Notes
The family of this 67-nucleotide RNA from Ceutorhynchus assimilis is "mir-33 microRNA precursor family".
[Rfam]
RNA sequence: UGUCGGUGCAUUGUAGUUGCAUUGCAUGUUUUUUUAUAAGUGCAGUGUUUCUUCAGUGCAAUCGAUA
Dot-bracket structure: ((((.((((((((.((..(.(((((((............))))))).)..)).)))))))..)))))
Lineage of the source: Eukaryota > Panarthropoda > Hexapoda > Insecta > Ceutorhynchus. Gene Ontology terms of the family: RISC complex and gene silencing by miRNA.